[Rfam]
RNA sequence: CCUUCUCAACAAACCACGGAUCUGUGCUCAGCGGUCCUCUGCGUUCACGCGCUAGGGUCGACUGCUGUGCAGCUCGAUAACUCUAUGGAGCCAUCAACUUGCUAUGGUGUCAAUCAUCCUAUCGACAGGUCCAAGAACAACUCGGCCUCUGGCUGCCUCAUUCGCUGUCGCAAGAUGGCUUGAGUGUUGUGGCUGGAGGAUUCGGGGGCCCCAUAUUCCAACCCUUUUUUCCAAGGCCGUCGGCCGAUGAGGUUGAGGAAAACCAUGGGUUGCCUACAUCU
Numbered sequence: 001c002c003u004u005c006u007c008a009a010c011a012a013a014c015c016a017c018g019g020a021u022c023u024g025u026g027c028u029c030a031g032c033g034g035u036c037c038u039c040u041g042c043g044u045u046c047a048c049g050c051g052c053u054a055g056g057g058u059c060g061a062c063u064g065c066u067g068u069g070c071a072g073c074u075c076g077a078u079a080a081c082u083c084u085a086u087g088g089a090g091c092c093a094u095c096a097a098c099u100u101g102c103u104a105u106g107g108u109g110u111c112a113a114u115c116a117u118c119c120u121a122u123c124g125a126c127a128g129g130u131c132c133a134a135g136a137a138c139a140a141c142u143c144g145g146c147c148u149c150u151g152g153c154u155g156c157c158u159c160a161u162u163c164g165c166u167g168u169c170g171c172a173a174g175a176u177g178g179c180u181u182g183a184g185u186g187u188u189g190u191g192g193c194u195g196g197a198g199g200a201u202u203c204g205g206g207g208g209c210c211c212c213a214u215a216u217u218c219c220a221a222c223c224c225u226u227u228u229u230u231c232c233a234a235g236g237c238c239g240u241c242g243g244c245c246g247a248u249g250a251g252g253u254u255g256a257g258g259a260a261a262a263c264c265a266u267g268g269g270u271u272g273c274c275u276a277c278a279u280c281u
Base pairs, nucleotide, nucleotide: 018132019131020130021129022128023127024126025125026070027069029067030066031065033063034062035061036060037057038056039055040054041053042051043050078124080122082121086112087111088110090108091107092106147198148197149196150195151194152193159186160185161184162183163182164180166178168175169174207274208273209272210269211268212267213266214265224258225257226256227255231252232251235245236244237243238242

Shown here is a 281-nucleotide RNA from Trichoderma virens, a member of the family "A. fumigatus sRNA Afu_309". For this family Rfam cites "Small ncRNA transcriptome analysis from Aspergillus fumigatus suggests a novel mechanism for regulation of protein synthesis" (Jochl et al., Nucleic Acids Res, 2008).